[Rfam]
RNA: Bacterial RNase P class A
RNA sequence: UAAGUAAGGAAGGUAGUCGCAGAAGGGCAACACCCUUCUGAGGAAAGUCCGGACUCCUGGGAGCAGGGUGCUUGGGAAAUCCAAGCGGGGGUGACCCCAGGGAAAGUGCCACAGAAAAUAGACCGCUAACUUUUGAGUUAGCAAGGGUGAAAAGGUGGUGUAAGAGACCACCGGUAGUCCUGGUGACAGGGCUACGCAUGGCAAACCCCACCCGGAGCAAGGCCAAAUAGGGUAGCUUAAGAGUGCUCCCCUCAUGCUACCGGGUUGGCCGCUUAGAUAAAUGACUACCAUCUCGGCUUCGAGAUACAGAAUCCGGCUUAUUCCUUACUUAAGGC
Dot-bracket structure: ((((((((((((((((((.((((((((.....))))))))....[[[.[[[[[((((...[.[..((((((((((.....)))))(((((....)))).)((...(((((............(((((((((....)))))))..)).......((((((.......)))))).(((((((((....))))))))..)..)))..)))))))))))))...((((......((((((....(((...].].)))..)))))).....))))............)))))))......................]]]]]]]].)))))))))))....